[Rfam]
RNA sequence: GCCGGUGUAGCUCAGGGGUAGAGUGCUUCCUUGGUAAGGAAGAGGUCUCGGGUUCAAUUCCCGACAUUGGCU
Numbered sequence: 001g002c003c004g005g006u007g008u009a010g011c012u013c014a015g016g017g018g019u020a021g022a023g024u025g026c027u028u029c030c031u032u033g034g035u036a037a038g039g040a041a042g043a044g045g046u047c048u049c050g051g052g053u054u055c056a057a058u059u060c061c062c063g064a065c066a067u068u069g070g071c072u
Stems, first nucleotide, its partner, number of pairs: 001071007010024004026042005048064005
About this RNA: tRNA: a 72-nucleotide RNA sequence from Flavobacterium kingsejongi. Pairs were carried over by alignment from the consensus structure, which is taken from published work. By type it is a transfer RNA. A search with the family's covariance model found it, with a score of 66 bits. From the family's description: Transfer RNA (tRNA) molecules are approximately 80 nucleotides in length.